[Rfam]
RNA sequence: UGACGGAAGGGUACUACCAGAAGUGGAGCCUGCGGCUUAAUUUAACUUAAUACAGAGAAACUCACCAGGUCCAGAUACAUUAAGUAUUGACAGAUUGAGAGCUCUUUCUUGAUUAUGUGGGUGGUGGUGCAUGGCCGUUCUUAGUUGGUGGAGUGAUUUAUUUGCUUAAUUGCGAUUACGUAUGAGACUUUAACCUGCUAAAUAGUCAGGCCAGCUUUGGCUGGUCAUAGGCUUCUUAGAGGGACUAUCGGCUUUAAGUCGAUAGAAGUUUGAGGCAAUAAUAGGUCUGUAAUUCCCUUAGAUGUUCGGGGCCGCACGUGUGUUAUAUUCCCAGAGCCAACGAGUCUAUACCUUGUCCGAAAGGCCUGGGUAAUCUUGUUAAACUCUGUCGUGCUGGGGAUAGAGCAUUGCAAACAUUGCUCUUCAAUGAGGAAUUCCUAGUAAGUGCAAGUCAUUAGCUUGUGUUGACUAUGUCCCUGCCCUUUGUACAUA
Numbered sequence: 001u002g003a004c005g006g007a008a009g010g011g012u013a014c015u016a017c018c019a020g021a022a023g024u025g026g027a028g029c030c031u032g033c034g035g036c037u038u039a040a041u042u043u044a045a046c047u048u049a050a051u052a053c054a055g056a057g058a059a060a061c062u063c064a065c066c067a068g069g070u071c072c073a074g075a076u077a078c079a080u081u082a083a084g085u086a087u088u089g090a091c092a093g094a095u096u097g098a099g100a101g102c103u104c105u106u107u108c109u110u111g112a113u114u115a116u117g118u119g120g121g122u123g124g125u126g127g128u129g130c131a132u133g134g135c136c137g138u139u140c141u142u143a144g145u146u147g148g149u150g151g152a153g154u155g156a157u158u159u160a161u162u163u164g165c166u167u168a169a170u171u172g173c174g175a176u177u178a179c180g181u182a183u184g185a186g187a188c189u190u191u192a193a194c195c196u197g198c199u200a201a202a203u204a205g206u207c208a209g210g211c212c213a214g215c216u217u218u219g220g221c222u223g224g225u226c227a228u229a230g231g232c233u234u235c236u237u238a239g240a241g242g243g244a245c246u247a248u249c250g251g252c253u254u255u256a257a258g259u260c261g262a263u264a265g266a267a268g269u270u271u272g273a274g275g276c277a278a279u280a281a282u283a284g285g286u287c288u289g290u291a292a293u294u295c296c297c298u299u300a301g302a303u304g305u306u307c308g309g310g311g312c313c314g315c316a317c318g319u320g321u322g323u324u325a326u327a328u329u330c331c332c333a334g335a336g337c338c339a340a341c342g343a344g345u346c347u348a349u350a351c352c353u354u355g356u357c358c359g360a361a362a363g364g365c366c367u368g369g370g371u372a373a374u375c376u377u378g379u380u381a382a383a384c385u386c387u388g389u390c391g392u393g394c395u396g397g398g399g400a401u402a403g404a405g406c407a408u409u410g411c412a413a414a415c416a417u418u419g420c421u422c423u424u425c426a427a428u429g430a431g432g433a434a435u436u437c438c439u440a441g442u443a444a445g446u447g448c449a450a451g452u453c454a455u456u457a458g459c460u461u462g463u464g465u466u467g468a469c470u471a472u473g474u475c476c477c478u479g480c481c482c483u484u485u486g487u488a489c490a491u492a
Stems, first nucleotide, its partner, number of pairs: 001490002003487003007484007016474002020438001022436003025326001027324003031320004035315002041056003065310002068307002071304001076119005089108002092105003123298002126296002129293001132292001133290001134286003137282003144183002148179002150159003162175004189274004194242003198239004204233004245265008332388005342377003351370002355366001357364002397428001402423006444466008
RNA: Eukaryotic small subunit ribosomal RNA, nucleotides 1124 to 1615